[Rfam]
Rfam assigns this 89-nucleotide RNA sequence from Pseudooceanicola atlanticus to the family "Glycine riboswitch aptamer". A reference for the family is Mandal et al. (2004), "A glycine-dependent riboswitch that uses cooperative binding to control gene expression", Science. Rfam describes the family as follows. This family represents the bacterial glycine riboswitch. The source organism's lineage runs through Bacteria, Pseudomonadota, Alphaproteobacteria, Paracoccaceae and Pseudooceanicola. The base pairs follow the family's consensus structure.
RNA sequence: GUCACUGGAUAGGGAGAACCGGCUGCGUGCCGGUGCCGAAGGAGCAACCGCCCCGGAAACUCUCAGGCCUCAGGGACCUGUCCGGCACG
Number, nucleotide and partner (000 for none) at each position: 001g000002u000003c000004a000005c000006u084007g083008g082009a081010u080011a079012g078013g077014g000015a000016g000017a000018a000019c033020c032021g031022g030023c000024u000025g000026c000027g000028u000029g000030c022031c021032g020033g019034u000035g068036c067037c066038g064039a063040a000041g000042g062043a061044g060045c000046a000047a000048c056049c055050g000051c000052c000053c000054c000055g049056g048057a000058a000059a000060c044061u043062c042063u039064c038065a000066g037067g036068c035069c000070u000071c000072a000073g000074g000075g000076a000077c013078c012079u011080g010081u009082c008083c007084g006085g000086c000087a000088c000089g000